RNA sequence: UUUUUAGAGAGUUUGAUCCUGGCUCAGGAUGAACGCUGGCGGCGUGCCUAACACAUGCAAGUCGAACGGAGCACUGAGACUUCGGUUUUUGUGCUUAGUGGCGGACGGGUGAGUAACGCGUGAGCAAUCUGCCUUUCAGAGGGGGAUAACGACUGGAAACGGUCGCUAAUACCGCAUAACGUAUUUUGCAGGCAUCUGCGAGAUACCAAAGGAGCAAUCCGCUGAAAGAUGAGCUCGCGUCUGAUUAGAUAGUUGGUGAGGUAACGGCCCACCAAGUCGACGAUCAGUAGCCGGACUGAGAGGUUGAACGGCCACAUUGGGACUGAGACACGGCCCAGACUCCUACGGGAGGCAGCAGUGGGGAAUAUUGCGCAAUGGGGGAAACCCUGACGCAGCAACGCCGCGUGAUCGAAGAAGGUCUUCGGAUUGUAAAGAUCUUUUAUCAGGGACGAAGAAAGUGACGGUACCUGAUGAAUAAGCUCCGGCUAACUACGUGCCAGCAGCCGCGGUAAUACGUAGGGAGCGAGCGUUAUCCGGAUUUACUG
Number, nucleotide and partner (000 for none) at each position: 001u000002u000003u000004u000005u000006a000007g000008a000009g025010a024011g023012u022013u021014u000015g000016a000017u000018c000019c000020u000021g013022g012023c011024u010025c009026a000027g535028g534029a533030u532031g000032a531033a530034c529035g528036c527037u526038g000039g404040c403041g402042g401043c400044g399045u397046g396047c362048c000049u000050a000051a000052c360053a359054c358055a000056u357057g356058c355059a000060a000061g102062u101063c100064g000065a000066a099067c098068g000069g000070a000071g095072c000073a000074c091075u000076g089077a088078g087079a086080c085081u000082u000083c000084g000085g080086u079087u078088u077089u076090u000091g074092u000093g000094c000095u071096u000097a000098g067099u066100g063101g062102c061103g000104g000105a000106c000107g000108g000109g315110u314111g313112a000113g000114u000115a000116a000117c000118g240119c239120g238121u237122g236123a235124g234125c233126a000127a000128u232129c231130u000131g000132c000133c228134u227135u226136u225137c224138a223139g222140a000141g175142g000143g173144g172145g000146a000147u000148a000149a000150c165151g164152a163153c162154u161155g160156g000157a000158a000159a000160c155161g154162g153163u152164c151165g150166c000167u000168a000169a000170u000171a000172c144173c143174g000175c141176a000177u000178a000179a000180c000181g206182u205183a204184u203185u202186u201187u200188g000189c198190a197191g196192g000193c000194a000195u000196c191197u190198g189199c000200g187201a186202g185203a184204u183205a182206c181207c000208a000209a000210a000211g220212g219213a218214g000215c000216a000217a000218u213219c212220c211221g000222c139223u138224g137225a136226a135227a134228g133229a000230u000231g129232a128233g125234c124235u123236c122237g121238c120239g119240u118241c287242u286243g285244a000245u000246u000247a000248g278249a277250u276251a000252g000253u275254u274255g273256g272257u271258g270259a000260g268261g000262u000263a000264a000265c000266g000267g000268c260269c000270c258271a257272c256273c255274a254275a253276g250277u249278c248279g000280a000281c000282g000283a000284u000285c243286a242287g241288u000289a000290g312291c311292c310293g309294g305295a304296c303297u302298g000299a000300g000301a000302g297303g296304u295305u294306g000307a000308a000309c293310g292311g291312c290313c111314a110315c109316a000317u338318u337319g336320g335321g334322a000323c000324u000325g000326a000327g000328a000329c000330a000331c000332g000333g000334c321335c320336c319337a318338g317339a000340c351341u350342c349343c348344u000345a000346c000347g000348g343349g342350a341351g340352g000353c000354a000355g058356c057357a056358g054359u053360g052361g000362g047363g000364a000365a000366u000367a000368u394369u000370g393371c392372g391373c000374a000375a000376u389377g388378g387379g386380g385381g000382a000383a000384a000385c380386c379387c378388u377389g376390a000391c372392g371393c370394a368395g000396c046397a045398a000399c044400g043401c042402c041403g040404c039405g000406u000407g437408a436409u435410c434411g000412a000413a000414g000415a000416a000417g428418g427419u426420c425421u000422u000423c000424g000425g420426a419427u418428u417429g000430u000431a000432a000433a000434g410435a409436u408437c407438u000439u000440u000441u000442a472443u471444c470445a469446g468447g467448g000449a000450c000451g462452a000453a000454g000455a000456a000457a000458g000459u000460g000461a000462c451463g000464g000465u000466a000467c447468c446469u445470g444471a443472u442473g000474a000475a000476u000477a000478a000479g524480c523481u522482c521483c520484g000485g000486c000487u000488a000489a000490c519491u518492a517493c516494g515495u000496g000497c000498c000499a000500g507501c506502a000503g000504c000505c000506g501507c500508g000509g000510u000511a000512a000513u000514a000515c494516g493517u492518a491519g490520g483521g482522a481523g480524c479525g000526a037527g036528c035529g034530u033531u032532a030533u029534c028535c027536g000537g000538a000539u000540u000541u000542a000543c000544u000545g000
This 545-nucleotide part of an RNA from Butyricicoccus porcorum belongs to the Rfam family "Bacterial small subunit ribosomal RNA". The match comes from Rfam's covariance-model search (1591 bits). Its family is annotated with ribosome and structural constituent of ribosome in the Gene Ontology. Lineage of the source: Bacteria > Bacillati > Bacillota > Butyricicoccaceae > Butyricicoccus.